[Rfam]
RNA sequence: UUCUGCACGAAAGUGAUCGGGGCUGCCUGUGGCCGCGUCAUGAUAGUGCAGGGAGAGGAAUUGCUGAAAGACAUUUCCUGUGUUGGGGCCCAGCGGUCCCUUCCAAACCCUGGAGCUUUCCAAA
Numbered sequence: 001u002u003c004u005g006c007a008c009g010a011a012a013g014u015g016a017u018c019g020g021g022g023c024u025g026c027c028u029g030u031g032g033c034c035g036c037g038u039c040a041u042g043a044u045a046g047u048g049c050a051g052g053g054a055g056a057g058g059a060a061u062u063g064c065u066g067a068a069a070g071a072c073a074u075u076u077c078c079u080g081u082g083u084u085g086g087g088g089c090c091c092a093g094c095g096g097u098c099c100c101u102u103c104c105a106a107a108c109c110c111u112g113g114a115g116c117u118u119u120c121c122a123a124a
Stems, first nucleotide, its partner, number of pairs: 001053008013041005018035001020034002023031001063121001066120005082108003086100003
The family of this 124-nucleotide RNA sequence from Camelus dromedarius is "Small nucleolar RNA SNORA71". Pairs were carried over by alignment from the consensus structure, which was predicted with PFOLD. Rfam 15.1 lists 1,805 matches to the family in 606 species. Lineage of the source: Eukaryota > Deuterostomia > Dipnotetrapodomorpha > Amniota > Camelus. Rfam describes the family as follows. The members of this family belong to the H/ACA class of snoRNAs which bind a number of proteins (including dyskerin, Gar1p and Nop10p) to form snoRNP complexes. This class of snoRNAs are thought to guide the sites of modification of uridines to pseudouridines by forming direct base pairing interactions with substrate RNAs.